[Rfam]
RNA sequence: GUAGUCAGAUUCACAUCAAUCCAUAUAUAUUGAGGUGGGUUGAAGUGAAACUUGAACUAAAUUCCACCCCAAUCCACUUCAAUACAUGUGGAUUAAGGUGAAUACGACA
Numbered sequence: 001g002u003a004g005u006c007a008g009a010u011u012c013a014c015a016u017c018a019a020u021c022c023a024u025a026u027a028u029a030u031u032g033a034g035g036u037g038g039g040u041u042g043a044a045g046u047g048a049a050a051c052u053u054g055a056a057c058u059a060a061a062u063u064c065c066a067c068c069c070c071a072a073u074c075c076a077c078u079u080c081a082a083u084a085c086a087u088g089u090g091g092a093u094u095a096a097g098g099u100g101a102a103u104a105c106g107a108c109a
Stems, first nucleotide, its partner, number of pairs: 004108003009103006016096001018094009028084005035077008045067003

The record is a 109-nucleotide RNA from Sorghum bicolor, which matches "MIR5565 microRNA precursor family" in Rfam.
Rfam 15.1 lists 3,346 matches to the family in 5 species.
Taxonomically the source falls in Sorghum (Eukaryota, Streptophytina, Liliopsida, Andropogonodae).